[Rfam]
Clostridiales-1 RNA: a 157-nucleotide RNA from Firmicutes bacterium AF22-6AC. The match comes from Rfam's covariance-model search (106 bits). By type it is a small RNA.

RNA sequence: UAUUAAGAUUUGCAAUAAAGCCCAGACCGACUGCUCGCAGGCAGGUCUGGUGCUUUAUUAGCAAAUCAAACACACAUGAGCAAGUAGGACGAUAGUCCGGAAUGCGAAUGGGUGUCACGGAUUCGAGAGCACGAAGUGCGGAGAAGCCGUGUUAAUA
Numbered sequence: 001u002a003u004u005a006a007g008a009u010u011u012g013c014a015a016u017a018a019a020g021c022c023c024a025g026a027c028c029g030a031c032u033g034c035u036c037g038c039a040g041g042c043a044g045g046u047c048u049g050g051u052g053c054u055u056u057a058u059u060a061g062c063a064a065a066u067c068a069a070a071c072a073c074a075c076a077u078g079a080g081c082a083a084g085u086a087g088g089a090c091g092a093u094a095g096u097c098c099g100g101a102a103u104g105c106g107a108a109u110g111g112g113u114g115u116c117a118c119g120g121a122u123u124c125g126a127g128a129g130c131a132c133g134a135a136g137u138g139c140g141g142a143g144a145a146g147c148c149g150u151g152u153u154a155a156u157a
Base pairs, nucleotide, nucleotide: 001157002156003155004154005153008066009065010064011063014059015058016057017056018055019054020053021052022050023049024048025047026046027045028044029042031040032039033038070115071114072113073112075110076109077108080105081104082103087098088097089096090095118149119148120147122145123144124143129139130138131137132136